This 76-nucleotide RNA from Klebsiella pneumoniae belongs to the Rfam family "sroE RNA". The literature on the family includes a 2003 paper in Nucleic Acids Res by Vogel et al., "RNomics in Escherichia coli detects new sRNA species and indicates parallel transcriptional output in bacteria". About the family: This family consists of a number of bacterial sroE RNA genes of around 90 bases in length. sroE is found in several Enterobacterial species but its function is unknown. Lineage of the source: Bacteria > Gammaproteobacteria > Klebsiella pneumoniae complex > Klebsiella pneumoniae > Klebsiella pneumoniae subsp. pneumoniae. The family's consensus secondary structure was predicted with PFOLD.
[Rfam]
RNA sequence: AUAACGUGUUGGGAAGCGAUACGCUUCCCGUGUAUGAUUGAACCUGCGGGCGCGAGGCGCCGGGGUUCAUUUUUGU
Dot-bracket structure: .........(((((((((...)))))))))........(((((((.(((..........)))))))))).......